RNA: UnaL2 LINE 3' element
Organism: Salmo trutta
RNA sequence: AUGACUCCCUACUGUACGUCUCUCUGGAUAAGAGAGUCUGCUAAAUGACUCCUA
Numbered sequence: 001a002u003g004a005c006u007c008c009c010u011a012c013u014g015u016a017c018g019u020c021u022c023u024c025u026g027g028a029u030a031a032g033a034g035a036g037u038c039u040g041c042u043a044a045a046u047g048a049c050u051c052c053u054a
Stems, first nucleotide, its partner, number of pairs: 013043001014041003020036006